[Rfam]
RNA: Lysine riboswitch aptamer
Organism: Clostridium chauvoei
RNA sequence: UUAUUAGGUAGAGGAGCUGUUAAUAAUAGUAGUUAUGAAGAGCUGGCAAGCGAAGAAACAUGACGAAAGGAUUAAUAGCCGAAGAAAUAAAAAAGCAAAGUUUAUUUCUGGGGAUACAUAUAAUAUGUGUAUCACUGUCACGUAAGUGGAGAGCUACGAAAAAU
Numbered sequence: 001u002u003a004u005u006a007g008g009u010a011g012a013g014g015a016g017c018u019g020u021u022a023a024u025a026a027u028a029g030u031a032g033u034u035a036u037g038a039a040g041a042g043c044u045g046g047c048a049a050g051c052g053a054a055g056a057a058a059c060a061u062g063a064c065g066a067a068a069g070g071a072u073u074a075a076u077a078g079c080c081g082a083a084g085a086a087a088u089a090a091a092a093a094a095g096c097a098a099a100g101u102u103u104a105u106u107u108c109u110g111g112g113g114a115u116a117c118a119u120a121u122a123a124u125a126u127g128u129g130u131a132u133c134a135c136u137g138u139c140a141c142g143u144a145a146g147u148g149g150a151g152a153g154c155u156a157c158g159a160a161a162a163a164u
Stems, first nucleotide, its partner, number of pairs: 008157004016079009032064006083109009110136002113133008138149004